This 358-nucleotide RNA sequence from Jonquetella anthropi belongs to the Rfam family "Bacterial RNase P class A".
RNA sequence: UCAGCGGUACAGGAAGUCGCCGCCCUGCCGGGCUUUGCCGGGCAGGGGAGAGGAAAGUCCGGGCUCCACAGGGCAAGACGCUGGAUAACGUCCAGUUGGAGCGAUCCACAGGAUAGUGCCACAGAGAGCAGACCGCCGCCUGCGGUCCCCGCAGCGGUAAGGGUGAAAGGGUGGGGUAAGAGCCCACCGGGCGUUCGGCGACGAACGUGCUAGGCAAACCCCGUCUGGAGCAAGAUCAAAUAGGGAGGGUUGAGGCUGCCCGCUGACCUCCGGGUAUGGUCGCUUGAGGGCCGGUGCAAAUCGGCUCCUAGAGAAAUGACUUCCCACGACAGAACCCGGCUUAUGGACCACUGGAUUC
Numbered sequence: 001u002c003a004g005c006g007g008u009a010c011a012g013g014a015a016g017u018c019g020c021c022g023c024c025c026u027g028c029c030g031g032g033c034u035u036u037g038c039c040g041g042g043c044a045g046g047g048g049a050g051a052g053g054a055a056a057g058u059c060c061g062g063g064c065u066c067c068a069c070a071g072g073g074c075a076a077g078a079c080g081c082u083g084g085a086u087a088a089c090g091u092c093c094a095g096u097u098g099g100a101g102c103g104a105u106c107c108a109c110a111g112g113a114u115a116g117u118g119c120c121a122c123a124g125a126g127a128g129c130a131g132a133c134c135g136c137c138g139c140c141u142g143c144g145g146u147c148c149c150c151g152c153a154g155c156g157g158u159a160a161g162g163g164u165g166a167a168a169g170g171g172u173g174g175g176g177u178a179a180g181a182g183c184c185c186a187c188c189g190g191g192c193g194u195u196c197g198g199c200g201a202c203g204a205a206c207g208u209g210c211u212a213g214g215c216a217a218a219c220c221c222c223g224u225c226u227g228g229a230g231c232a233a234g235a236u237c238a239a240a241u242a243g244g245g246a247g248g249g250u251u252g253a254g255g256c257u258g259c260c261c262g263c264u265g266a267c268c269u270c271c272g273g274g275u276a277u278g279g280u281c282g283c284u285u286g287a288g289g290g291c292c293g294g295u296g297c298a299a300a301u302c303g304g305c306u307c308c309u310a311g312a313g314a315a316a317u318g319a320c321u322u323c324c325c326a327c328g329a330c331a332g333a334a335c336c337c338g339g340c341u342u343a344u345g346g347a348c349c350a351c352u353g354g355a356u357u358c
Base pairs, nucleotide, nucleotide: 001354002353003352004351006349007348008347010345011344012324013323014322015321016320017319018318020050023047024046025045026044027043028042055342056341057340059339060338061337062336063335064230065229066228067227071261072260073259074258076226077225078224079223080222081095082094083093084092085091096110097108098107099106100105111221112220116219117218118215119214120213133162134161135158136157137156141154145150170188171187172186173185174184175183189210190208192207193206194205195204196203197202234281235280236279237278244271245270246269247268248267254264255263256262288307289306290305291304292303293302294301295300
Taxonomically the source falls in Jonquetella anthropi (Bacteria, Synergistota, Synergistia, Synergistales). The family's consensus secondary structure is taken from published work. Rfam links the family to the GO terms ribonuclease P activity, tRNA processing and dimeric ribonuclease P complex.